About this RNA
Shown here is a 39-nucleotide sequence, a member of the family "S4-Flavobacteria ribosomal protein leader". Pairs were carried over by alignment from the consensus structure, which is taken from published work.
[Rfam]
RNA sequence: AGUCUUCGAAGGAUAAGAUUAAGACCUUAAUUCAUGGCU
Numbered sequence: 001a002g003u004c005u006u007c008g009a010a011g012g013a014u015a016a017g018a019u020u021a022a023g024a025c026c027u028u029a030a031u032u033c034a035u036g037g038c039u
Stems, first nucleotide, its partner, number of pairs: 001039004006034001008033001009028004